[Rfam]
RNA: MIR2629 microRNA precursor family
RNA sequence: UGCCGAAGUUGUCCUCGGCAGUUUACUGCAGCCGGUUCUUUAAAAUUUCGGCAGUUAACUGCCGAAGGGUAU
Numbered sequence: 001u002g003c004c005g006a007a008g009u010u011g012u013c014c015u016c017g018g019c020a021g022u023u024u025a026c027u028g029c030a031g032c033c034g035g036u037u038c039u040u041u042a043a044a045a046u047u048u049c050g051g052c053a054g055u056u057a058a059c060u061g062c063c064g065a066a067g068g069g070u071a072u
Base pairs, nucleotide, nucleotide: 012068013067015065016064017063018062019061020060021059022058023057025055026054027053028052029051